This 94-nucleotide RNA sequence from Rhododendron williamsianum belongs to the Rfam family "small nucleolar RNA snoR117". Lineage of the source: Eukaryota > Viridiplantae > Euphyllophyta > Spermatophyta > Rhododendron.
RNA sequence: GGCCAGUGAUGAUAGAUAUUGUUCGUACCAUCUGAGAGAGUCUUUCCAAAAGGCUCCUCUGAUUACGUAAUCUAAUCCCAGCUCUCUGAGGCCU
Numbered sequence: 001g002g003c004c005a006g007u008g009a010u011g012a013u014a015g016a017u018a019u020u021g022u023u024c025g026u027a028c029c030a031u032c033u034g035a036g037a038g039a040g041u042c043u044u045u046c047c048a049a050a051a052g053g054c055u056c057c058u059c060u061g062a063u064u065a066c067g068u069a070a071u072c073u074a075a076u077c078c079c080a081g082c083u084c085u086c087u088g089a090g091g092c093c094u
Stems, first nucleotide, its partner, number of pairs: 001093004
Pairs were carried over by alignment from the consensus structure, which was predicted with RNAalifold.